[Rfam]
RNA sequence: GGGUUUCGCUUCGGGCUCACCUCCUCCCGGGCUUCGAAGCGGAUCAAGGGGCCUACACUCCUCCUCCCAACGUAGGCUCCGUUCAUACGACACCCGCCGGUCCUCCCCCGGCGGGUGUUGUUC
Numbered sequence: 001g002g003g004u005u006u007c008g009c010u011u012c013g014g015g016c017u018c019a020c021c022u023c024c025u026c027c028c029g030g031g032c033u034u035c036g037a038a039g040c041g042g043a044u045c046a047a048g049g050g051g052c053c054u055a056c057a058c059u060c061c062u063c064c065u066c067c068c069a070a071c072g073u074a075g076g077c078u079c080c081g082u083u084c085a086u087a088c089g090a091c092a093c094c095c096g097c098c099g100g101u102c103c104u105c106c107c108c109c110g111g112c113g114g115g116u117g118u119u120g121u122u123c
Stems, first nucleotide, its partner, number of pairs: 007041003011037003014033003048080009090118011
Annotation
The record is a 123-nucleotide RNA sequence from Fulvimarina pelagi, which matches "Alphaproteobacterial ar14" in Rfam. Smr14C2 was renamed NfeR1 (Nodule Formation Efficiency RNA) highly expressed in salt stress and during the symbiotic interaction on legume roots. The source organism's lineage runs through Bacteria, Pseudomonadati, Pseudomonadota, Alphaproteobacteria and Fulvimarina pelagi. Rfam classes the family as a small RNA. Gene Ontology term of the family: biological process involved in symbiotic interaction.